RNA sequence: UAACAGAAGCGGCGCGGCCCCGAGUUAUGCUCUGGGUGGGAUGGUGAGAGAAAGUCCACUUGGUUAAGCCGGAGAGGGGUUUGGAUCGCCGCAGUCCUUUACCCUCUCCGGUUUUGCUAA
Numbered sequence: 001u002a003a004c005a006g007a008a009g010c011g012g013c014g015c016g017g018c019c020c021c022g023a024g025u026u027a028u029g030c031u032c033u034g035g036g037u038g039g040g041a042u043g044g045u046g047a048g049a050g051a052a053a054g055u056c057c058a059c060u061u062g063g064u065u066a067a068g069c070c071g072g073a074g075a076g077g078g079g080u081u082u083g084g085a086u087c088g089c090c091g092c093a094g095u096c097c098u099u100u101a102c103c104c105u106c107u108c109c110g111g112u113u114u115u116g117c118u119a120a
Stems, first nucleotide, its partner, number of pairs: 009092005017037004022032004044059003060120005066114001069111010083097004
Rfam assigns this 120-nucleotide sequence from Chromatocurvus halotolerans to the family "RT-12 RNA". It is annotated as a small RNA. It scores 70 bits against the family's covariance model. Taxonomically the source falls in Chromatocurvus (Bacteria, Pseudomonadota, Cellvibrionales, Halieaceae).